[Rfam]
RNA sequence: CAUGAUCAGGAAUGGACUAAUUGUGGUGAGAAAGCGCAUGGGCAGGAUGGUGUAACCAUCCGGCGGCAGCCACCCAUGCGCUGAAUGAGGCUCCGAUAGGGGCCUUUUUUUAUGGCCUGGU
Numbered sequence: 001c002a003u004g005a006u007c008a009g010g011a012a013u014g015g016a017c018u019a020a021u022u023g024u025g026g027u028g029a030g031a032a033a034g035c036g037c038a039u040g041g042g043c044a045g046g047a048u049g050g051u052g053u054a055a056c057c058a059u060c061c062g063g064c065g066g067c068a069g070c071c072a073c074c075c076a077u078g079c080g081c082u083g084a085a086u087g088a089g090g091c092u093c094c095g096a097u098a099g100g101g102g103c104c105u106u107u108u109u110u111u112a113u114g115g116c117c118u119g120g121u
Stems, first nucleotide, its partner, number of pairs: 007028001030116001033082010045061006063070002087106008

Source information:
Rhizobiales sRNA Atu_C8: a 121-nucleotide sequence from Hoeflea prorocentri. NCBI's taxonomy places the organism under Bacteria, Pseudomonadati, Pseudomonadota, Hyphomicrobiales, Hoeflea. The match comes from Rfam's covariance-model search (103 bits).